[Rfam]
RNA sequence: UGCUCAUCAAGAGGGACAGAGGGAUACGGCCCGAAGAAGUCCCGGCAACCGCCACGAGCCUCCGCCUCCCGCCAGGGAUCGGAUCGUGGAAACGGUGCCAAUUCCGUCCGGCGCGAUGGUCGCAGCCGGAGAAGAUGAGAA
Numbered sequence: 001u002g003c004u005c006a007u008c009a010a011g012a013g014g015g016a017c018a019g020a021g022g023g024a025u026a027c028g029g030c031c032c033g034a035a036g037a038a039g040u041c042c043c044g045g046c047a048a049c050c051g052c053c054a055c056g057a058g059c060c061u062c063c064g065c066c067u068c069c070c071g072c073c074a075g076g077g078a079u080c081g082g083a084u085c086g087u088g089g090a091a092a093c094g095g096u097g098c099c100a101a102u103u104c105c106g107u108c109c110g111g112c113g114c115g116a117u118g119g120u121c122g123c124a125g126c127c128g129g130a131g132a133a134g135a136u137g138a139g140a141a
Stems, first nucleotide, its partner, number of pairs: 001141001003139006013043005021032003027106003044099004049095002103133001107130006

The family of this 141-nucleotide RNA from Nocardioides sp. dk884 is "SAM riboswitch aptamer (S box leader)". The organism belongs to Nocardioides, within Bacteria. Rfam's curators write: The SAM riboswitch is found upstream of a number of genes which code for proteins involved in methionine or cysteine biosynthesis in Gram-positive bacteria. The SAM riboswitch acts at the level of transcription termination control.